L31-Firmicutes ribosomal protein leader: a 32-nucleotide RNA sequence from Aeribacillus alveayuensis.
For this family Rfam cites "Discovery of 20 novel ribosomal leader candidates in bacteria and archaea" (Eckert and Weinberg, BMC Microbiol, 2020).
The organism belongs to Aeribacillus, within Bacteria.
It is one of the family's seed sequences.

[Rfam]
RNA sequence: CUCUGUUUCGAAAAGAAUCAGGGCGGAAGGAG
Numbered sequence: 001c002u003c004u005g006u007u008u009c010g011a012a013a014a015g016a017a018u019c020a021g022g023g024c025g026g027a028a029g030g031a032g
Stems, first nucleotide, its partner, number of pairs: 001023005008016002